[Rfam]
RNA sequence: AAACAACCCCACGGGAGUCCGGGCACCGGGCUGAGAGGGGGGCUGAUGCGGCCCCCGACCGUCGAACCUGAUCCGGAUAAUGCCGGCGCAGGGAGGAGUGCCUCGUGCACA
Numbered sequence: 001a002a003a004c005a006a007c008c009c010c011a012c013g014g015g016a017g018u019c020c021g022g023g024c025a026c027c028g029g030g031c032u033g034a035g036a037g038g039g040g041g042g043c044u045g046a047u048g049c050g051g052c053c054c055c056c057g058a059c060c061g062u063c064g065a066a067c068c069u070g071a072u073c074c075g076g077a078u079a080a081u082g083c084c085g086g087c088g089c090a091g092g093g094a095g096g097a098g099u100g101c102c103u104c105g106u107g108c109a110c111a
Stems, first nucleotide, its partner, number of pairs: 006099002009096002011062004017031005038056008067092004073086004
A member of the RNA family "TPP riboswitch aptamer (THI element)" from Actinoplanes italicus, 111 nucleotides long. Lineage of the source: Bacteria > Bacillati > Actinomycetes > Micromonosporales > Actinoplanes.